MIR824 microRNA precursor family: a 643-nucleotide RNA from Capsella rubella. Gene Ontology terms of the family: RISC complex and miRNA-mediated post-transcriptional gene silencing. A search with the family's covariance model found it, with a score of 365 bits. Pairs were carried over by alignment from the consensus structure, which was predicted with WAR.

RNA sequence: CUCGAGUUAUCUCUCGUCUCUAGACCAUUUGUGAGAAGGGAUCUUUUAUUUGCACCAAUACCUCACCAGUCUCUAAAUCUGCAAAUAAGUAUUAUGCUCACUUAAGGAAAAUACCUUGUCAAUAUAUCUCACCCUCUUUUAAAACUAAUCUUAGAAUUCAGAUGCCUUUGGAUCCUAAAAUACAUUGUUGUGCAUAUAUGUAAUCUACUGGCGCAGCAGGGUAAGUUUCUUGUGUACCUCUAGAAAUUCUCUUACUGCUUAGGAUUCCCGAGCUACCAAAACUUUCUUAAGGUCUACUCUGUAGGUCACAACUAUUAUUGCCGCACUCACCUUAUUGUUAAGAUGGUUAUUUCUUCCAAUCAAUAUCUGAUCCUUCGGAAGUUAGGUUUAAAAAUAAGUAGAUAAUGUGCAUUAGUGACUUUUCCUGAUGCUGCACUCAUAAUUGUUUUGUUUGUGUUCCAACUCAAUUCAAGAUGAUUCUCGAAAUCAUAUAAAUUCAUUAACACCAUGAACAUGAUAGCUAAGAAUUUGUAUGUCUUACAACUAGUAGACACCCUAAUUAUAAACAUAGGGACUGGUGAGGGGUUUGGUUAUGUUCCCUUCUCAUCGAUGGUCUAGAUGUGCGAGGUGACUCUCAUGGAGG
Dot-bracket structure: (((((((((((((.(((.(((((((((((.(((((((((((.(........((.((..........(((..(((.................................................................................................................................................................................................................................................................................................................................................................................................................................................................................................................))))))....)).))........).))))))))))).))))))))))).))).)))))))))).....))).